[Rfam]
RNA sequence: GGUUUUAACCCAGUUUAACCAAGGUUAGCUGUCGUUUCGAUCUCUCGAAAGAGUGUGUCGAAUAGAAACACCAAUUUUUGGAACCGCCUCUUCGGGGAUAUCCGUUGAGGCAAA
Numbered sequence: 001g002g003u004u005u006u007a008a009c010c011c012a013g014u015u016u017a018a019c020c021a022a023g024g025u026u027a028g029c030u031g032u033c034g035u036u037u038c039g040a041u042c043u044c045u046c047g048a049a050a051g052a053g054u055g056u057g058u059c060g061a062a063u064a065g066a067a068a069c070a071c072c073a074a075u076u077u078u079u080g081g082a083a084c085c086g087c088c089u090c091u092u093c094g095g096g097g098a099u100a101u102c103c104g105u106u107g108a109g110g111c112a113a114a
Stems, first nucleotide, its partner, number of pairs: 007036002010031001013029002017026003038060004042055001044053003090110006096103002
RNA: SL2 RNA
Organism: Caenorhabditis briggsae